Shown here is a 52-nucleotide RNA sequence from Szabonella alba, a member of the family "ffh sRNA". For this family Rfam cites "Identification of candidate structured RNAs in the marine organism 'Candidatus Pelagibacter ubique'" (Meyer et al., BMC Genomics, 2009). The family's RNA type in Rfam is small RNA. NCBI's taxonomy places the organism under Bacteria, Alphaproteobacteria, Rhodobacterales, Paracoccaceae, Szabonella.
RNA sequence: AUUGGCCGGGAUCGCCAUCCGUCAGCGCGUUGCGCCCACGGGUGCCCUUGGC
Numbered sequence: 001a002u003u004g005g006c007c008g009g010g011a012u013c014g015c016c017a018u019c020c021g022u023c024a025g026c027g028c029g030u031u032g033c034g035c036c037c038a039c040g041g042g043u044g045c046c047c048u049u050g051g052c
Base pairs, nucleotide, nucleotide: 016044017043018042019041020040021039022038025035026034027033028032